Plastid-psbN 5UTR RNA: a 61-nucleotide sequence from Ziziphus jujuba.
Rfam describes the family as follows. Plastid psbN is a non-coding RNA (ncRNA) recognised in plastids. It was reported as a conserved 11 stem-loop in the prime untranslated region (5UTR) of psbN genes.
The family has 63 seed sequences and 2,345 matches in Rfam 15.1.
It scores 56 bits against the family's covariance model.
Rfam classes the family as a cis-regulatory element.
NCBI's taxonomy places the organism under Eukaryota, Embryophyta, Pentapetalae, Paliureae, Ziziphus jujuba.
A reference for the family is Richter et al. (2023), "Retrograde signaling in plants: A critical review focusing on the GUN pathway and beyond", Plant Commun.
RNA sequence: UGCGAGACCCAUAAAAGGAUUAGUUCCCCACCCAUGAGCCACUUUACUGUAUUCUAAAUUU
Numbered sequence: 001u002g003c004g005a006g007a008c009c010c011a012u013a014a015a016a017g018g019a020u021u022a023g024u025u026c027c028c029c030a031c032c033c034a035u036g037a038g039c040c041a042c043u044u045u046a047c048u049g050u051a052u053u054c055u056a057a058a059u060u061u
Stems, first nucleotide, its partner, number of pairs: 017045003021041001023039004